RNA sequence: UCCAAGCCCAUGCUCUUUCCACUGAGCCACGCUGCUUCUCCAAUAUCAAUAUCAAUCCAAUAUCAAUAGAUAAGUGAAGCAGCGUGGCUCAGUGGAAAGAGCACGGGCUUUGGA
Numbered sequence: 001u002c003c004a005a006g007c008c009c010a011u012g013c014u015c016u017u018u019c020c021a022c023u024g025a026g027c028c029a030c031g032c033u034g035c036u037u038c039u040c041c042a043a044u045a046u047c048a049a050u051a052u053c054a055a056u057c058c059a060a061u062a063u064c065a066a067u068a069g070a071u072a073a074g075u076g077a078a079g080c081a082g083c084g085u086g087g088c089u090c091a092g093u094g095g096a097a098a099g100a101g102c103a104c105g106g107g108c109u110u111u112g113g114a
Stems, first nucleotide, its partner, number of pairs: 001114003005109005012102008022092017